[Rfam]
RNA: TPP riboswitch aptamer (THI element)
Organism: Ciceribacter lividus
RNA sequence: AAGGCGAGACAGGGGCGUCCGCCGGCAGGCGGGCUGAGAAGGACCCUUUGAACCUGAACCAGAUCAUGCUGGCGGAGGGAGUCGUUUCGGGGCGAGG
Numbered sequence: 001a002a003g004g005c006g007a008g009a010c011a012g013g014g015g016c017g018u019c020c021g022c023c024g025g026c027a028g029g030c031g032g033g034c035u036g037a038g039a040a041g042g043a044c045c046c047u048u049u050g051a052a053c054c055u056g057a058a059c060c061a062g063a064u065c066a067u068g069c070u071g072g073c074g075g076a077g078g079g080a081g082u083c084g085u086u087u088c089g090g091g092g093c094g095a096g097g
Stems, first nucleotide, its partner, number of pairs: 006085001008083003011047004016041001017034005053078003059072004